[Rfam]
RNA sequence: UUGGUAUUUGUUAGGUUAUGAACAGAAGCGCUCACAGCGCGGCCCUAUCAGAUUCCAGCAUAUCUGUGAAUUCUGCC
Numbered sequence: 001u002u003g004g005u006a007u008u009u010g011u012u013a014g015g016u017u018a019u020g021a022a023c024a025g026a027a028g029c030g031c032u033c034a035c036a037g038c039g040c041g042g043c044c045c046u047a048u049c050a051g052a053u054u055c056c057a058g059c060a061u062a063u064c065u066g067u068g069a070a071u072u073c074u075g076c077c
Stems, first nucleotide, its partner, number of pairs: 014044004023075005028040003049066005
Shown here is a 77-nucleotide RNA sequence from Alligator mississippiensis, a member of the family "Mammalian CPEB3 ribozyme".
The source organism's lineage runs through Eukaryota, Eumetazoa, Deuterostomia, Vertebrata and Alligator.
Pairs were carried over by alignment from the consensus structure, which is taken from published work.
Rfam links the family to the GO term RNA nuclease activity.